[Rfam]
RNA: Small nucleolar RNA SNORD14
Organism: Nicotiana attenuata
RNA sequence: GAUCGGUGAUGAUGAAUUCGAAGGCUUGUUUCUCAAAACAUUCGCAGUGGCCGCCUAAGUGCUUUCGCCUUCGCCAGGCUUGAGAGUAAAUGCUGCUUUUAUCCUUCCUUGGAUGUCUGAGAUU
Dot-bracket structure: ((((........................................................((((((...............)))))).................................))))